This 79-nucleotide RNA from Varibaculum cambriense belongs to the Rfam family "ZMP/ZTP riboswitch aptamer (pfl RNA motif)". Its family is annotated with one-carbon metabolic process and regulation of purine nucleotide biosynthetic process in the Gene Ontology. Lineage of the source: Bacteria > Actinomycetota > Actinomycetes > Actinomycetales > Varibaculum cambriense. It scores 60 bits against the family's covariance model. The family's consensus secondary structure is taken from published work. For this family Rfam cites "Recognition of the bacterial alarmone ZMP through long-distance association of two RNA subdomains" (Jones and Ferre-D'Amare, Nat Struct Mol Biol, 2015).
RNA sequence: UGGAUUUAACGUGACUGGCGAAAAAAGUGGAUUACCACUGGGGAACGUAAAAGGACAGUCGCUCGCCUGGGCUGGACAA
Number, nucleotide and partner (000 for none) at each position: 001u000002g000003g000004a000005u052006u051007u050008a000009a048010c047011g046012u045013g000014a000015c042016u041017g067018g066019c065020g064021a063022a000023a000024a000025a000026a000027g038028u037029g036030g035031a000032u000033u000034a000035c030036c029037a028038c027039u000040g000041g016042g015043g000044a000045a012046c011047g010048u009049a000050a007051a006052a005053g000054g000055a000056c074057a073058g072059u071060c070061g000062c000063u021064c020065g019066c018067c017068u000069g000070g060071g059072c058073u057074g056075g000076a000077c000078a000079a000